[Rfam]
Rfam assigns this 104-nucleotide sequence from Bacillus aquiflavi to the family "SAM riboswitch aptamer (S box leader)".
RNA sequence: UUCUUAUCAAGAGAGGUGGAGGGACUUGGCCCUUUGAAGCCCGGCAACCGGUUAGUUAACACGGUGCUAAUUCCAACAGAGCUAAUUUUUCUGGGAGAUAAGAA
Numbered sequence: 001u002u003c004u005u006a007u008c009a010a011g012a013g014a015g016g017u018g019g020a021g022g023g024a025c026u027u028g029g030c031c032c033u034u035u036g037a038a039g040c041c042c043g044g045c046a047a048c049c050g051g052u053u054a055g056u057u058a059a060c061a062c063g064g065u066g067c068u069a070a071u072u073c074c075a076a077c078a079g080a081g082c083u084a085a086u087u088u089u090u091c092u093g094g095g096a097g098a099u100a101a102g103a104a
Base pairs, nucleotide, nucleotide: 001104002103003102004101005100006099007098008097013042015041016040017039021032022031023030026076027075028074029073043068044067045066046065048064049063050060052058072096077093078092079091080090081089

About this RNA
Rfam links the family to the GO term regulation of gene expression. It scores 88 bits against the family's covariance model.